[Rfam]
RNA sequence: GCGGUAUUAAUGAAGGCCUGCGCCGAAACGAUGAUGCUUCGGGGCGUAGACCUGAUCCUCUUACCGU
Numbered sequence: 001g002c003g004g005u006a007u008u009a010a011u012g013a014a015g016g017c018c019u020g021c022g023c024c025g026a027a028a029c030g031a032u033g034a035u036g037c038u039u040c041g042g043g044g045c046g047u048a049g050a051c052c053u054g055a056u057c058c059u060c061u062u063a064c065c066g067u
Stems, first nucleotide, its partner, number of pairs: 001067005015052002018049007
Dot-bracket structure: (((((.........((.(((((((..................))))))).))..........)))))
RNA: Selenocysteine insertion sequence 1